[Rfam]
RNA sequence: GUUGCGGGCCGGGCCCCUCUGGCGAUCCAAUAUGGUCGCGAUGCCGGACCGCAUCG
Numbered sequence: 001g002u003u004g005c006g007g008g009c010c011g012g013g014c015c016c017c018u019c020u021g022g023c024g025a026u027c028c029a030a031u032a033u034g035g036u037c038g039c040g041a042u043g044c045c046g047g048a049c050c051g052c053a054u055c056g
Stems, first nucleotide, its partner, number of pairs: 006050002009047004022039006
The family of this 56-nucleotide RNA sequence from Novosphingobium pentaromativorans is "terC RNA".
It is annotated as a cis-regulatory element.